SAM riboswitch aptamer (S box leader): a 98-nucleotide RNA sequence from Halobacillus karajensis. NCBI's taxonomy places the organism under Bacteria, Bacilli, Caryophanales, Bacillaceae, Halobacillus. Rfam links the family to the GO term regulation of gene expression. Rfam describes the family as follows. The SAM riboswitch is found upstream of a number of genes which code for proteins involved in methionine or cysteine biosynthesis in Gram-positive bacteria. The family's consensus secondary structure is taken from published work.
[Rfam]
RNA sequence: UCCUUAUAAAGAGACGGGGGAAGAAACUGGUCUAAUGAUCCCGCAGCAACCUUCCGUAAGGUGCUCAAUCCAGCAGAUGCAAAUCUGAAAGAUAAGGA
Numbered sequence: 001u002c003c004u005u006a007u008a009a010a011g012a013g014a015c016g017g018g019g020g021a022a023g024a025a026a027c028u029g030g031u032c033u034a035a036u037g038a039u040c041c042c043g044c045a046g047c048a049a050c051c052u053u054c055c056g057u058a059a060g061g062u063g064c065u066c067a068a069u070c071c072a073g074c075a076g077a078u079g080c081a082a083a084u085c086u087g088a089a090a091g092a093u094a095a096g097g098a
Stems, first nucleotide, its partner, number of pairs: 001098007013044001015043004022033003027073004045065004050061002069090001074087005